The family of this 137-nucleotide sequence from Rhizoclosmatium globosum is "U4 spliceosomal RNA".
The family's RNA type in Rfam is spliceosomal small nuclear RNA.
On this family, see Zhan et al., Cell Res 2018: "Structures of the human pre-catalytic spliceosome and its precursor spliceosome".
Clan: U4 clan.
The family's consensus secondary structure is taken from published work.
U4 small nuclear RNA (U4 snRNA) is a component of the major U2-dependent spliceosome.

RNA sequence: AUCCUACACAGAGAGUAAUAAGUUUGACGGUGAAGCCCAGACUGAGUCAACUUUUUUGCUGAUUGAAAACUAUUUCCUUACAUCUUCGUGGUCUCGCAAGAGACAACGGGAAUUUUUGAAACCCACUCACUCUGUUG
Numbered sequence: 001a002u003c004c005u006a007c008a009c010a011g012a013g014a015g016u017a018a019u020a021a022g023u024u025u026g027a028c029g030g031u032g033a034a035g036c037c038c039a040g041a042c043u044g045a046g047u048c049a050a051c052u053u054u055u056u057u058g059c060u061g062a063u064u065g066a067a068a069a070c071u072a073u074u075u076c077c078u079u080a081c082a083u084c085u086u087c088g089u090g091g092u093c094u095c096g097c098a099a100g101a102g103a104c105a106a107c108g109g110g111a112a113u114u115u116u117u118g119a120a121a122c123c124c125a126c127u128c129a130c131u132c133u134g135u136u137g
Stems, first nucleotide, its partner, number of pairs: 020053005026048003034043002085110005091104005